[Rfam]
RNA: Small nucleolar RNA snoR27
Organism: Brassica napus
RNA sequence: AUCAGAUCGAUGAUGUUAUUAUAAAACUGCGUUAUCUAUCUUAAAGAUCUCCGAAAUAGGAGUUGCAGAUUACUAAACAGAAUCGCUGAGAUCUGAU
Numbered sequence: 001a002u003c004a005g006a007u008c009g010a011u012g013a014u015g016u017u018a019u020u021a022u023a024a025a026a027c028u029g030c031g032u033u034a035u036c037u038a039u040c041u042u043a044a045a046g047a048u049c050u051c052c053g054a055a056a057u058a059g060g061a062g063u064u065g066c067a068g069a070u071u072a073c074u075a076a077a078c079a080g081a082a083u084c085g086c087u088g089a090g091a092u093c094u095g096a097u
Base pairs, nucleotide, nucleotide: 001097002096003095004094005093006092007091